A member of the RNA family "UnaL2 LINE 3' element" from Onychostoma macrolepis, 54 nucleotides long. The organism belongs to Onychostoma, within Eukaryota. Rfam links the family to the GO term transposition, RNA-mediated. The family's consensus secondary structure is taken from published work. The eel long interspersed element (LINE) UnaL2 and its partner short interspersed element (SINE) share a conserved 3' tail containing a stem-loop that is critical for their retrotransposition. Presumably, the first step of retrotransposition is the recognition of their 3' tails by UnaL2-encoded reverse transcriptase. The solution structure of a 17-nucleotide RNA derived from the 3' tail of UnaL2 was determined by NMR.
[Rfam]
Nucleotides: 054
Stems, first nucleotide, its partner, number of pairs: 013043001015040002020036006
Number, partner (000 for none) and nucleotide at each position: 001000u002000g003000u004000a005000u006000u007000c008000c009000c010000a011000a012000c013043u014000u015040u016039a017000a018000g019000u020036c021035g022034c023033u024032u025031u026000g027000g028000a029000u030000a031025a032024a033023a034022g035021c036020g037000u038000c039016u040015g041000c042000a043013a044000a045000a046000u047000g048000a049000c050000a051000a052000u053000g054000u